Background:
Shown here is a 453-nucleotide part of an RNA from Metallosphaera cuprina, a member of the family "Archaeal large subunit ribosomal RNA".
RNA sequence: CCCUCCGAAAUGCGUCCUAGCGCAGCCUCCCUGGAGGUUGCUCAUGGGGUAGAGAUACUGAUUGGGGGCCUCUGACGAAAGUCAGAGGAACUCAGUCAAACUCCGAACCCAUGGGCGCCAGAGAAGGGGGGAGUGGAUCACCCGGCGUAAGGUUGGGUGGUAAGAGGGGAACAACCCAGACCCGGGUUAAGGUCCCUAAGUACUGGCUAAGUGCCAAUCUUGAAGGGCAUCCCAUGCCUAAGACAGCGGGAAGGUGGGCCCAGCAGCAGCCAUCCUCUAAGGAGUGCGUAACAGCUCACCCGCCGAGGCCUGGGGUCCUGCAGACUAGUCGGGGCUCAAGCCAGUCACCGAUACCCGGGGAGUGACGCUCACUGAGUGUCACUCGGUAGGGGGGCGCCGCGAUGGGCUAGAAGGUGGGUCGUGAGAUCCACUGGACCCUUCGCGGGUGCAGAU
Numbered sequence: 001c002c003c004u005c006c007g008a009a010a011u012g013c014g015u016c017c018u019a020g021c022g023c024a025g026c027c028u029c030c031c032u033g034g035a036g037g038u039u040g041c042u043c044a045u046g047g048g049g050u051a052g053a054g055a056u057a058c059u060g061a062u063u064g065g066g067g068g069c070c071u072c073u074g075a076c077g078a079a080a081g082u083c084a085g086a087g088g089a090a091c092u093c094a095g096u097c098a099a100a101c102u103c104c105g106a107a108c109c110c111a112u113g114g115g116c117g118c119c120a121g122a123g124a125a126g127g128g129g130g131g132a133g134u135g136g137a138u139c140a141c142c143c144g145g146c147g148u149a150a151g152g153u154u155g156g157g158u159g160g161u162a163a164g165a166g167g168g169g170a171a172c173a174a175c176c177c178a179g180a181c182c183c184g185g186g187u188u189a190a191g192g193u194c195c196c197u198a199a200g201u202a203c204u205g206g207c208u209a210a211g212u213g214c215c216a217a218u219c220u221u222g223a224a225g226g227g228c229a230u231c232c233c234a235u236g237c238c239u240a241a242g243a244c245a246g247c248g249g250g251a252a253g254g255u256g257g258g259c260c261c262a263g264c265a266g267c268a269g270c271c272a273u274c275c276u277c278u279a280a281g282g283a284g285u286g287c288g289u290a291a292c293a294g295c296u297c298a299c300c301c302g303c304c305g306a307g308g309c310c311u312g313g314g315g316u317c318c319u320g321c322a323g324a325c326u327a328g329u330c331g332g333g334g335c336u337c338a339a340g341c342c343a344g345u346c347a348c349c350g351a352u353a354c355c356c357g358g359g360g361a362g363u364g365a366c367g368c369u370c371a372c373u374g375a376g377u378g379u380c381a382c383u384c385g386g387u388a389g390g391g392g393g394g395c396g397c398c399g400c401g402a403u404g405g406g407c408u409a410g411a412a413g414g415u416g417g418g419u420c421g422u423g424a425g426a427u428c429c430a431c432u433g434g435a436c437c438c439u440u441c442g443c444g445g446g447u448g449c450a451g452a453u
Base pairs, nucleotide, nucleotide: 001394002393003392004391005390006389011024012023013022014021015020026133027131028130029129030128031127032126036119037118038117040116041115042114043113044112045111046110047109052104053102054101060097061096062095063094064093065092066091069088071086072085073084074083075082076081137161138160139159140158141157142156143155144154145153166177167176168175181359182358183357184356185355186354187353191349192348193347200346202345203344204343205342206341207340225319226318227317229316230315231314232313233312234311236309237308238307246303247302248301249300250299252276253275254274257271258270259269277281282297286295287294360384361383362382363381364380365379366378367377368376395448397445398444399443400442401441402440404438405437406436413432414431415430416429417428418427419426420425